RNA sequence: UAGACUGAUAGCAAGGUUCCGGAUGCUCAGGCAGCAUUCGAGUUUGCUCUCACUGCCACUUUACCAGCGUUAGCAGGUGCUAACAUGAUUUAUGGCAUGG
Numbered sequence: 001u002a003g004a005c006u007g008a009u010a011g012c013a014a015g016g017u018u019c020c021g022g023a024u025g026c027u028c029a030g031g032c033a034g035c036a037u038u039c040g041a042g043u044u045u046g047c048u049c050u051c052a053c054u055g056c057c058a059c060u061u062u063a064c065c066a067g068c069g070u071u072a073g074c075a076g077g078u079g080c081u082a083a084c085a086u087g088a089u090u091u092a093u094g095g096c097a098u099g100g
Base pairs, nucleotide, nucleotide: 003012025032033062034061077098079096080095